[Rfam]
RNA sequence: AGUUUAUUGGUUUAUAUCAGUCCACCAUCAGAUACUGAUAUAAAUGAAUAUUCAGCUAUGACUUAUACAACGUGCCAUUUCGCCGUGAUUAACACCGAAAUGGCGCGUUUUUCA
Numbered sequence: 001a002g003u004u005u006a007u008u009g010g011u012u013u014a015u016a017u018c019a020g021u022c023c024a025c026c027a028u029c030a031g032a033u034a035c036u037g038a039u040a041u042a043a044a045u046g047a048a049u050a051u052u053c054a055g056c057u058a059u060g061a062c063u064u065a066u067a068c069a070a071c072g073u074g075c076c077a078u079u080u081c082g083c084c085g086u087g088a089u090u091a092a093c094a095c096c097g098a099a100a101u102g103g104c105g106c107g108u109u110u111u112u113c114a
Base pairs, nucleotide, nucleotide: 002053005050006049007048008047010045011044012043013042014041015040016039017038018037019036020035021034069109070108071107072106073105074104075103076102077101078100079099080098081097082096085095086094087093
A member of the RNA family "23S methyl RNA motif" from Dolosigranulum pigrum, 114 nucleotides long. The source organism's lineage runs through Bacteria, Bacillota, Lactobacillales, Dolosigranulum and Dolosigranulum pigrum. Rfam links the family to the GO term regulation of gene expression. By type it is a cis-regulatory element.